The family of this 59-nucleotide sequence from Laribacter hongkongensis is "Selenocysteine insertion sequence 3". By type it is a cis-regulatory element. Pairs were carried over by alignment from the consensus structure, which was predicted with CMfinder. Gene Ontology term of the family: selenocysteine incorporation.
RNA sequence: GUCUGACACGGCCCGACGGUGGCAAGUCUUGCCCCUUCGUUUGGCCGUGGCGCCAUGAC
Dot-bracket structure: ......(((((((.((.((.(((((...))))))).....)))))))))..........